[Rfam]
RNA sequence: AGGCGAUGAAGAAAGAAAUCAUUUCUCGAUGCUGAGAUAAUGGACCUUCGUUUAUUUCUGAUGACCUGUUUUUAUGCGUGUCUGAGCCUU
Numbered sequence: 001a002g003g004c005g006a007u008g009a010a011g012a013a014a015g016a017a018a019u020c021a022u023u024u025c026u027c028g029a030u031g032c033u034g035a036g037a038u039a040a041u042g043g044a045c046c047u048u049c050g051u052u053u054a055u056u057u058c059u060g061a062u063g064a065c066c067u068g069u070u071u072u073u074a075u076g077c078g079u080g081u082c083u084g085a086g087c088c089u090u
Stems, first nucleotide, its partner, number of pairs: 001089004
The record is a 90-nucleotide sequence, which matches "small nucleolar RNA snoR126" in Rfam. Rfam links the family to the GO terms nucleolus and RNA processing. The literature on the family includes a 2009 paper in Nucleic Acids Res by Chen and Wu, "Mining small RNA sequencing data: a new approach to identify small nucleolar RNAs in Arabidopsis".